This 177-nucleotide RNA sequence from Medicago truncatula belongs to the Rfam family "MIR2619 microRNA precursor family". Rfam links the family to the GO terms RISC complex and miRNA-mediated post-transcriptional gene silencing. A search with the family's covariance model found it, with a score of 116 bits. Pairs were carried over by alignment from the consensus structure, which was predicted with RNAalifold.

RNA sequence: AAACCACCCCUUAAGUUUUGCAACUAUAGCAGUUUUUGCCCCCAAGGCCAAUUUUUGGUAAAAAAAAAAUAAAAAAAUAACACGUGGCACCUCACUUAGGGUGCCACGUCAGCGUAGACCGAGUCAAAAUUGAUCUUAGGGGGCCAAAACUGCCAUGCAAAACUUAGGGGACGGUUU
Numbered sequence: 001a002a003a004c005c006a007c008c009c010c011u012u013a014a015g016u017u018u019u020g021c022a023a024c025u026a027u028a029g030c031a032g033u034u035u036u037u038g039c040c041c042c043c044a045a046g047g048c049c050a051a052u053u054u055u056u057g058g059u060a061a062a063a064a065a066a067a068a069a070u071a072a073a074a075a076a077a078u079a080a081c082a083c084g085u086g087g088c089a090c091c092u093c094a095c096u097u098a099g100g101g102u103g104c105c106a107c108g109u110c111a112g113c114g115u116a117g118a119c120c121g122a123g124u125c126a127a128a129a130u131u132g133a134u135c136u137u138a139g140g141g142g143g144c145c146a147a148a149a150c151u152g153c154c155a156u157g158c159a160a161a162a163c164u165u166a167g168g169g170g171a172c173g174g175u176u177u
Base pairs, nucleotide, nucleotide: 001177002176004174005173008170012166013165014164015163016162017161018160019159020158021157022156027155029153030152031151032150033149034148035147036146038144039143040142041141042140043139044137045136082109083108085106086105087104088103089102090101091100